The record is a 120-nucleotide RNA from Naja naja, which matches "Small nucleolar RNA SNORA26" in Rfam. The base pairs follow the family's consensus structure, which was predicted with RNAalifold. The snoRNA HBI-6 belong to the H/ACA family of snoRNAs, guiding the pseudouridylation of position U4522 if the 28S rRNA. HBI-6 is the human orthologue of mouse MBI-6 snoRNA. A search with the family's covariance model found it, with a score of 47 bits.
RNA sequence: UUGCGCCUCCGAAGCGGUCUGUGCUUUAGGAUGGUCAACACAGGGGGGUAGAGCGCUCUCUCACUGAAACCUGGGGCGGGGUUGGGUCUCCGCCUUCGGAUCCUGUCGUGAGAAACAACG
Numbered sequence: 001u002u003g004c005g006c007c008u009c010c011g012a013a014g015c016g017g018u019c020u021g022u023g024c025u026u027u028a029g030g031a032u033g034g035u036c037a038a039c040a041c042a043g044g045g046g047g048g049u050a051g052a053g054c055g056c057u058c059u060c061u062c063a064c065u066g067a068a069a070c071c072u073g074g075g076g077c078g079g080g081g082u083u084g085g086g087u088c089u090c091c092g093c094c095u096u097c098g099g100a101u102c103c104u105g106u107c108g109u110g111a112g113a114a115a116c117a118a119c120g
Stems, first nucleotide, its partner, number of pairs: 002050003006046004014039001017036001019030001057114001060112005071099006079091003